[Rfam]
RNA sequence: GUGACAAAUGCGGGAGAGAAUCCAAAACUGGAUCGCCGAAGGAACAAACUGUGUGGAAGCGCCUUUUCAACAGCGAAUUUCUCAGGCAAAAGGACCGUGUUUAGACA
Numbered sequence: 001g002u003g004a005c006a007a008a009u010g011c012g013g014g015a016g017a018g019a020a021u022c023c024a025a026a027a028c029u030g031g032a033u034c035g036c037c038g039a040a041g042g043a044a045c046a047a048a049c050u051g052u053g054u055g056g057a058a059g060c061g062c063c064u065u066u067u068c069a070a071c072a073g074c075g076a077a078u079u080u081c082u083c084a085g086g087c088a089a090a091a092g093g094a095c096c097g098u099g100u101u102u103a104g105a106c107a
Stems, first nucleotide, its partner, number of pairs: 006102008020033004035087003038083002042081003049073004
A member of the RNA family "Glycine riboswitch aptamer" from Alkaliphilus sp., 107 nucleotides long.